[Rfam]
RNA sequence: ACUAAUCAUCAGGAGAGGUUUCAUAACUGAAGCCCACCAACCGACCCAAAUGGGCACGGUGGUUCGAUCCUUGAACGGUAGAUGCGCCUUUAAAAAGGAAAUCACAAAGCCGCCUG
Number, nucleotide and partner (000 for none) at each position: 001a000002c000003u000004a000005a000006u000007c084008a083009u082010c081011a000012g000013g000014a000015g035016a000017g034018g033019u032020u031021u030022c029023a028024u000025a000026a000027c000028u023029g022030a021031a020032g019033c018034c017035c015036a063037c062038c061039a000040a000041c059042c058043g057044a000045c054046c053047c000048a000049a000050a000051u109052g000053g046054g045055c000056a000057c043058g042059g041060u000061g038062g037063u036064u000065c000066g000067a000068u000069c000070c000071u000072u000073g000074a000075a000076c000077g000078g000079u000080a000081g010082a009083u008084g007085c000086g000087c098088c097089u096090u095091u000092a000093a000094a000095a090096a089097g088098g087099a000100a000101a000102u000103c000104a000105c000106a000107a000108a000109g051110c000111c000112g000113c000114c000115u000116g000